[Rfam]
Nucleotides: 079
Stems, first nucleotide, its partner, number of pairs: 014047003018043003025035004054078004060074001062072002
Number, partner (000 for none) and nucleotide at each position: 001000g002000g003000a004000c005000u006000g007000c008000g009000a010000u011000g012000a013000u014047g015046c016045a017000a018043g019042a020041g021000g022000u023000u024000g025035c026034c027033g028032g029000u030000a031000u032028c033027c034026g035025g036000g037000g038000g039000a040000a041020u042019u043018c044000u045016u046015g047014c048000u049000g050000a051000g052000a053000a054078u055077g056076u057075c058000c059000u060074g061000a062072u063071c064000a065000a066000g067000a068000a069000u070000c071063g072062g073000g074060c075057g076056a077055c078054g079000g
Rfam assigns this 79-nucleotide sequence from Fervidicella metallireducens to the family "S10-Clostridia ribosomal protein leader". NCBI's taxonomy places the organism under Bacteria, Bacillati, Clostridia, Clostridiaceae, Fervidicella metallireducens. For this family Rfam cites "Discovery of 20 novel ribosomal leader candidates in bacteria and archaea" (Eckert and Weinberg, BMC Microbiol, 2020).